[Rfam]
RNA sequence: AGAGUUAGCCGCUAGGGUUCCGGCGCCGUCAGGCGUGGCUGGUCCGAGAGCGGCUACCGGCCGGGGAGAUAUCCGGCCGGGUGCACGGCGGGACAAAAGCCCGGGAGAC
Numbered sequence: 001a002g003a004g005u006u007a008g009c010c011g012c013u014a015g016g017g018u019u020c021c022g023g024c025g026c027c028g029u030c031a032g033g034c035g036u037g038g039c040u041g042g043u044c045c046g047a048g049a050g051c052g053g054c055u056a057c058c059g060g061c062c063g064g065g066g067a068g069a070u071a072u073c074c075g076g077c078c079g080g081g082u083g084c085a086c087g088g089c090g091g092g093a094c095a096a097a098a099g100c101c102c103g104g105g106a107g108a109c
Base pairs, nucleotide, nucleotide: 007055008054009053010052011051012050015045016044020042021041022039023036024035025034026033027032056082057080058079059078060077061076062075063074064073065072084104086107090102091101092100
Shown here is a 109-nucleotide RNA from Ciceribacter sp. L1K22, a member of the family "Guanidine-I riboswitch aptamer". The organism belongs to Ciceribacter, within Bacteria.